[Rfam]
Nucleotides: 126
Stems, first nucleotide, its partner, number of pairs: 003055006016041003019037002022034001065120003070114004075109002079107004085101002
Number, partner (000 for none) and nucleotide at each position: 001000a002000c003055g004054c005053a006052g007051g008050u009000g010000u011000c012000c013000a014000u015000u016041a017040c018039g019037c020036g021000a022034a023000g024000a025000c026000c027000a028000g029000u030000g031000u032000c033000u034022u035000a036020c037019g038000a039018c040017g041016u042000u043000u044000a045000g046000u047000u048000u049000a050008g051007c052006u053005u054004g055003c056000a057000a058000g059000a060000u061000a062000a063000a064000a065120c066119u067118g068000a069000c070114a071113u072112c073111u074000c075109g076108a077000a078000g079107a080106c081105a082104g083000g084000a085101g086100u087000a088000u089000c090000g091000u092000u093000u094000c095000g096000u097000a098000g099000a100086g101085c102000u103000a104082c105081u106080g107079u108076u109075c110000a111073a112072g113071a114070u115000u116000g117000g118067c119066a120065g121000a122000c123000a124000c125000u126000u